[Rfam]
The family of this 142-nucleotide sequence from Thiothrix unzii is "sroH RNA". Rfam describes the family as follows. This family consists of a number of bacterial sroH RNA genes of around 160 bases in length. The function of this family is unknown. A reference for the family is Vogel et al. (2003), "RNomics in Escherichia coli detects new sRNA species and indicates parallel transcriptional output in bacteria", Nucleic Acids Res. The source organism's lineage runs through Bacteria, Pseudomonadati, Gammaproteobacteria, Thiotrichaceae and Thiothrix.

RNA sequence: GAAAACACAUCACAGAUACGUGAUUCAGGAUGUUGCAGACUGGUUUUCCAGACAUCCCGCUACCCAAGAGGUCAGGCCAAGUCCGGUAAAGGUGUUCUGAAUACCAGAAGAAAUUCUGGCGAAGCCCGCUUAAGCGGGCUUU
Numbered sequence: 001g002a003a004a005a006c007a008c009a010u011c012a013c014a015g016a017u018a019c020g021u022g023a024u025u026c027a028g029g030a031u032g033u034u035g036c037a038g039a040c041u042g043g044u045u046u047u048c049c050a051g052a053c054a055u056c057c058c059g060c061u062a063c064c065c066a067a068g069a070g071g072u073c074a075g076g077c078c079a080a081g082u083c084c085g086g087u088a089a090a091g092g093u094g095u096u097c098u099g100a101a102u103a104c105c106a107g108a109a110g111a112a113a114u115u116c117u118g119g120c121g122a123a124g125c126c127c128g129c130u131u132a133a134g135c136g137g138g139c140u141u142u
Stems, first nucleotide, its partner, number of pairs: 125138005